[Rfam]
RNA sequence: UUCCCAUCUCUCGUGAUGAAUCCCCAUGCCCCUGAGCUGCCGUGAUUCUGGCUUCAAAGUAAACGCUCUGAAGAAGAGAUGGGA
Numbered sequence: 001u002u003c004c005c006a007u008c009u010c011u012c013g014u015g016a017u018g019a020a021u022c023c024c025c026a027u028g029c030c031c032c033u034g035a036g037c038u039g040c041c042g043u044g045a046u047u048c049u050g051g052c053u054u055c056a057a058a059g060u061a062a063a064c065g066c067u068c069u070g071a072a073g074a075a076g077a078g079a080u081g082g083g084a
Stems, first nucleotide, its partner, number of pairs: 002084004007079004
Shown here is an 84-nucleotide RNA from Carlito syrichta, a member of the family "Small nucleolar RNA SNORD105". Its Rfam clan is "SNORD105 clan". On this family, see Vitali et al., Nucleic Acids Res 2003: "Identification of 13 novel human modification guide RNAs". Rfam links the family to the GO terms nucleolus and RNA processing. Taxonomically the source falls in Carlito (Eukaryota, Metazoa, Teleostomi, Haplorrhini). About the family: U105 belongs to the C/D family of snoRNAs. It is encoded in an intron of the Suppressor of SWI4 1 homolog (Ssf-1) (Peter Pan homolog) gene. and is predicted to guide 2'O-ribose methylation of residue U799 of the small 18S rRNA subunit.